[Rfam]
Description
Rfam assigns this 197-nucleotide RNA sequence from Oryza glumipatula to the family "MIR1435 microRNA precursor family". The family has 3 seed sequences and 1,765 matches in Rfam 15.1. A search with the family's covariance model found it, with a score of 95 bits. The family's consensus secondary structure was predicted with RNAalifold.
RNA sequence: UGGCUUUGGUCAAAAUCAAACCGCUUCAAGUUUGACAAGUUUAUAAAAAAUAGUAAUAUCUUCGACCCAAGAUAAAUUUAUUAUAAAAAAUAUAUCUAAUUAAUAAUUUAAUAAAACUAAUUUGGUAAUAAAAAUAUUACUAUAUUUGUCUAUAAACUUAGUCAAACUUGAAGCAGUUUGACUUUGACUAAAAUUAA
Numbered sequence: 001u002g003g004c005u006u007u008g009g010u011c012a013a014a015a016u017c018a019a020a021c022c023g024c025u026u027c028a029a030g031u032u033u034g035a036c037a038a039g040u041u042u043a044u045a046a047a048a049a050a051u052a053g054u055a056a057u058a059u060c061u062u063c064g065a066c067c068c069a070a071g072a073u074a075a076a077u078u079u080a081u082u083a084u085a086a087a088a089a090a091u092a093u094a095u096c097u098a099a100u101u102a103a104u105a106a107u108u109u110a111a112u113a114a115a116a117c118u119a120a121u122u123u124g125g126u127a128a129u130a131a132a133a134a135u136a137u138u139a140c141u142a143u144a145u146u147u148g149u150c151u152a153u154a155a156a157c158u159u160a161g162u163c164a165a166a167c168u169u170g171a172a173g174c175a176g177u178u179u180g181a182c183u184u185u186g187a188c189u190a191a192a193a194u195u196a197a
Base pairs, nucleotide, nucleotide: 005192006191007190008189009188011186012185013184014183016181017180018179019178020177021176023174024173025172026171031166032165033164034163035162042152043151045149047147048146049145051142052141053140055138056137057136058135059134061132062131064129068125070123071122072121073120